RNA sequence: UGGUAGAUGCACCCUGAUAACUCACUCCCCUAGUUGGCUACAGCCUCUAGGGGUUUUUGUU
Numbered sequence: 001u002g003g004u005a006g007a008u009g010c011a012c013c014c015u016g017a018u019a020a021c022u023c024a025c026u027c028c029c030c031u032a033g034u035u036g037g038c039u040a041c042a043g044c045c046u047c048u049a050g051g052g053g054u055u056u057u058u059g060u061u
Stems, first nucleotide, its partner, number of pairs: 002013003027053007036045002
Shown here is a 61-nucleotide RNA from Tolypothrix tenuis, a member of the family "Nitrogen stress-induced RNA 1". The organism belongs to Tolypothrix tenuis, within Bacteria. Rfam classes the family as a small RNA. A reference for the family is Ionescu et al. (2010), "Heterocyst-specific transcription of NsiR1, a non-coding RNA encoded in a tandem array of direct repeats in cyanobacteria", J Mol Biol.